Shown here is a 134-nucleotide RNA from Microcebus murinus, a member of the family "Small nucleolar RNA SNORA71". It is annotated as an H/ACA-box small nucleolar RNA. Gene Ontology terms of the family: nucleolus and RNA processing. The base pairs follow the family's consensus structure, which was predicted with PFOLD. The family has 40 seed sequences and 1,805 matches in Rfam 15.1. The organism belongs to Microcebus, within Eukaryota. The sequence is in the family's curated seed alignment. From the family's description: The members of this family belong to the H/ACA class of snoRNAs which bind a number of proteins (including dyskerin, Gar1p and Nop10p) to form snoRNP complexes. This class of snoRNAs are thought to guide the sites of modification of uridines to pseudouridines by forming direct base pairing interactions with substrate RNAs.
RNA sequence: CCCUGCAUUCGAAAGUGAUCGUGGGCUGCCCGUGCCCUGGUCAUUGAUAGUGCAGGGAGAGGAAUUGCCGAAAGCGUUUCCCCGUGUUUGGAGGGUCUCUACCUGUCCCUGCCAAACUCUGGAGCUUUCGUACA
Numbered sequence: 001c002c003c004u005g006c007a008u009u010c011g012a013a014a015g016u017g018a019u020c021g022u023g024g025g026c027u028g029c030c031c032g033u034g035c036c037c038u039g040g041u042c043a044u045u046g047a048u049a050g051u052g053c054a055g056g057g058a059g060a061g062g063a064a065u066u067g068c069c070g071a072a073a074g075c076g077u078u079u080c081c082c083c084g085u086g087u088u089u090g091g092a093g094g095g096u097c098u099c100u101a102c103c104u105g106u107c108c109c110u111g112c113c114a115a116a117c118u119c120u121g122g123a124g125c126u127u128u129c130g131u132a133c134a
Stems, first nucleotide, its partner, number of pairs: 001057009014045008023037004067131001069130007086117005092110004